[Rfam]
RNA sequence: GCUGUCAUGAUGAUAUCCAUGCGUGUCAACUGACUUUAGAGUAUUCUGUGCUACUCUGCCACGUCUUCACGUUCUGUUAGGAUGUGUGCAAGGGUUCACAGCCCUCUCAAGGCAUGAUCUGACCUCACUGACCUGAACACAGC
Numbered sequence: 001g002c003u004g005u006c007a008u009g010a011u012g013a014u015a016u017c018c019a020u021g022c023g024u025g026u027c028a029a030c031u032g033a034c035u036u037u038a039g040a041g042u043a044u045u046c047u048g049u050g051c052u053a054c055u056c057u058g059c060c061a062c063g064u065c066u067u068c069a070c071g072u073u074c075u076g077u078u079a080g081g082a083u084g085u086g087u088g089c090a091a092g093g094g095u096u097c098a099c100a101g102c103c104c105u106c107u108c109a110a111g112g113c114a115u116g117a118u119c120u121g122a123c124c125u126c127a128c129u130g131a132c133c134u135g136a137a138c139a140c141a142g143c
Stems, first nucleotide, its partner, number of pairs: 001143004046101005051094001